[Rfam]
RNA sequence: UUACUGGAUGGGGGUUGUACCGUUGUGACCCAUUGCCGAAAACCGAAGGAGAGCGAACUGGCAGGUUUUUAGACAGUUU
Numbered sequence: 001u002u003a004c005u006g007g008a009u010g011g012g013g014g015u016u017g018u019a020c021c022g023u024u025g026u027g028a029c030c031c032a033u034u035g036c037c038g039a040a041a042a043c044c045g046a047a048g049g050a051g052a053g054c055g056a057a058c059u060g061g062c063a064g065g066u067u068u069u070u071a072g073a074c075a076g077u078u079u
Stems, first nucleotide, its partner, number of pairs: 003077004009032004038070007
CyVA-1 RNA: a 79-nucleotide RNA from Pleurocapsa sp. CCALA 161. The source organism's lineage runs through Bacteria, Cyanophyceae, Pleurocapsales, Pleurocapsaceae and Pleurocapsa. Rfam's curators write: Cyanobacteria, Acidobacteria (1 example), Verrucomicrobia (1 example). A search with the family's covariance model found it, with a score of 67 bits.